This 124-nucleotide sequence from Musa troglodytarum belongs to the Rfam family "MIR390 microRNA precursor family". The match comes from Rfam's covariance-model search (102 bits). Rfam links the family to the GO terms RISC complex and miRNA-mediated post-transcriptional gene silencing. The base pairs follow the family's consensus structure, which was predicted with WAR.

RNA sequence: UGGAAGAAUCUGUAAAGCUCAGGAGGGAUAGCGCCAUGGAUGAUAUGGAACAUGAAUUCUGAAAGCUUUUGGUGGUUCUAUUUGUCUAAUGCGCUAUCUAUCCUGAGUUUAAUGGCUUCUUCUU
Numbered sequence: 001u002g003g004a005a006g007a008a009u010c011u012g013u014a015a016a017g018c019u020c021a022g023g024a025g026g027g028a029u030a031g032c033g034c035c036a037u038g039g040a041u042g043a044u045a046u047g048g049a050a051c052a053u054g055a056a057u058u059c060u061g062a063a064a065g066c067u068u069u070u071g072g073u074g075g076u077u078c079u080a081u082u083u084g085u086c087u088a089a090u091g092c093g094c095u096a097u098c099u100a101u102c103c104u105g106a107g108u109u110u111a112a113u114g115g116c117u118u119c120u121u122c123u124u
Stems, first nucleotide, its partner, number of pairs: 010115001016109009026099009